[Rfam]
RNA sequence: AGAUGACAUGAUGACGGAAAUUGUUUCCCUAUUGGUUUGAUUGGCCGCCAUGAUGGCUCAAACUGUAUUAGCUCUAGCUGAUCAUCU
Numbered sequence: 001a002g003a004u005g006a007c008a009u010g011a012u013g014a015c016g017g018a019a020a021u022u023g024u025u026u027c028c029c030u031a032u033u034g035g036u037u038u039g040a041u042u043g044g045c046c047g048c049c050a051u052g053a054u055g056g057c058u059c060a061a062a063c064u065g066u067a068u069u070a071g072c073u074c075u076a077g078c079u080g081a082u083c084a085u086c087u
Stems, first nucleotide, its partner, number of pairs: 002086004039059001044057003
The record is an 87-nucleotide RNA sequence from Digitaria exilis, which matches "Small nucleolar RNA Z102/R77" in Rfam. Rfam 15.1 lists 1,346 matches to the family in 224 species. Its Rfam clan is "SNORD44 clan". A search with the family's covariance model found it, with a score of 95 bits. The family's RNA type in Rfam is C/D-box small nucleolar RNA.